Rfam assigns this 83-nucleotide RNA from Uliginosibacterium sp. TH139 to the family "c-di-GMP-I-GGC riboswitch aptamer". The base pairs follow the family's consensus structure, which is taken from published work. The match comes from Rfam's covariance-model search (64 bits). Rfam links the family to the GO term cyclic-di-GMP binding.
[Rfam]
RNA sequence: UCCGACAAAGGCACACCCGUCGAAAGACGGGGUCGCAAAGUUUCCGGUCUAAGGGGCAACCUACGACAGCGGGACCGCCAGAA
Numbered sequence: 001u002c003c004g005a006c007a008a009a010g011g012c013a014c015a016c017c018c019g020u021c022g023a024a025a026g027a028c029g030g031g032g033u034c035g036c037a038a039a040g041u042u043u044c045c046g047g048u049c050u051a052a053g054g055g056g057c058a059a060c061c062u063a064c065g066a067c068a069g070c071g072g073g074a075c076c077g078c079c080a081g082a083a
Stems, first nucleotide, its partner, number of pairs: 001083001004079001011036002016031006034069001040075003044072003047067003